The record is a 77-nucleotide RNA sequence from Oryzias latipes, which matches "mir-1 microRNA precursor family" in Rfam. The family has 137 seed sequences and 4,474 matches in Rfam 15.1. NCBI's taxonomy places the organism under Eukaryota, Bilateria, Gnathostomata, Actinopteri, Oryzias. From the family's description: This family represents the microRNA (miRNA) mir-1 family. miRNAs are transcribed as ~70nt precursors (modelled here) and subsequently processed by the Dicer enzyme to give a ~22nt product. The literature on the family includes a 2001 paper in Science by Lee and Ambros, "An extensive class of small RNAs in Caenorhabditis elegans".

RNA sequence: GCUUGGGGGACAUACUUCUUUAUAUGCCCAUAUGAACACGAGCAACUAUGGAAUGUAAAGAAGUAUGUAUCCCAGGU
Numbered sequence: 001g002c003u004u005g006g007g008g009g010a011c012a013u014a015c016u017u018c019u020u021u022a023u024a025u026g027c028c029c030a031u032a033u034g035a036a037c038a039c040g041a042g043c044a045a046c047u048a049u050g051g052a053a054u055g056u057a058a059a060g061a062a063g064u065a066u067g068u069a070u071c072c073c074a075g076g077u
Base pairs, nucleotide, nucleotide: 007071008070010068011067012066013065014064015063016062017061018060019059020058021057022056023055024054025053028051029050030049031048032047